[Rfam]
RNA sequence: UGGAAAUGAUGAAAUAGAGAUAAUUGGGUGUUGAGUGUUGUGUGAUUGGAAAAUUUUAACAUGUGAGUUAAGUAAUUAAGCUUAAUAUUUUAUAGAUACUUAAUAGAAUGUGUGUGUGUUUGUGUUUGUGUGCUCAUGGAGGCUAUUGAAGGGGGCACUGACUGGUGAUGCUGAUAUUGGAGUGCAUCUGAGGCUGUUGUAGAAAUACACGGGUUGUUGAUUACAACGUUGCCGAUGAUUAUAACCCAAGAACAGCUCACCUAAGUAGCCUAGCACCCUAAAAUCUCUAACAGGUUCAUUAAACAUGGUCCUGUGAUCUGAUCCAA
Numbered sequence: 001u002g003g004a005a006a007u008g009a010u011g012a013a014a015u016a017g018a019g020a021u022a023a024u025u026g027g028g029u030g031u032u033g034a035g036u037g038u039u040g041u042g043u044g045a046u047u048g049g050a051a052a053a054u055u056u057u058a059a060c061a062u063g064u065g066a067g068u069u070a071a072g073u074a075a076u077u078a079a080g081c082u083u084a085a086u087a088u089u090u091u092a093u094a095g096a097u098a099c100u101u102a103a104u105a106g107a108a109u110g111u112g113u114g115u116g117u118g119u120u121u122g123u124g125u126u127u128g129u130g131u132g133c134u135c136a137u138g139g140a141g142g143c144u145a146u147u148g149a150a151g152g153g154g155g156c157a158c159u160g161a162c163u164g165g166u167g168a169u170g171c172u173g174a175u176a177u178u179g180g181a182g183u184g185c186a187u188c189u190g191a192g193g194c195u196g197u198u199g200u201a202g203a204a205a206u207a208c209a210c211g212g213g214u215u216g217u218u219g220a221u222u223a224c225a226a227c228g229u230u231g232c233c234g235a236u237g238a239u240u241a242u243a244a245c246c247c248a249a250g251a252a253c254a255g256c257u258c259a260c261c262u263a264a265g266u267a268g269c270c271u272a273g274c275a276c277c278c279u280a281a282a283a284u285c286u287c288u289a290a291c292a293g294g295u296u297c298a299u300u301a302a303a304c305a306u307g308g309u310c311c312u313g314u315g316a317u318c319u320g321a322u323c324c325a326a
Stems, first nucleotide, its partner, number of pairs: 001325004195228008204218004208213001
RNA: Small Cajal body-specific RNA 7